[Rfam]
RNA sequence: GGAUGGACCUCUGGAGAGUCCCUUUCAAUAGGGCGCCGAAGGUGCAAGUCGGGAUGCAAGUGACCGAUGAAACUCUCAGGCAAAAGGACAGAGGGCAGGCU
Numbered sequence: 001g002g003a004u005g006g007a008c009c010u011c012u013g014g015a016g017a018g019u020c021c022c023u024u025u026c027a028a029u030a031g032g033g034c035g036c037c038g039a040a041g042g043u044g045c046a047a048g049u050c051g052g053g054a055u056g057c058a059a060g061u062g063a064c065c066g067a068u069g070a071a072a073c074u075c076u077c078a079g080g081c082a083a084a085a086g087g088a089c090a091g092a093g094g095g096c097a098g099g100c101u
Stems, first nucleotide, its partner, number of pairs: 006096001008094006020033004035081003038077002042075001044073001048068005
About this RNA: This 101-nucleotide RNA from Thermosinus carboxydivorans belongs to the Rfam family "Glycine riboswitch aptamer". It scores 71 bits against the family's covariance model. Lineage of the source: Bacteria > Bacillota > Negativicutes > Selenomonadales > Thermosinus carboxydivorans. Rfam's curators write: This family represents the bacterial glycine riboswitch.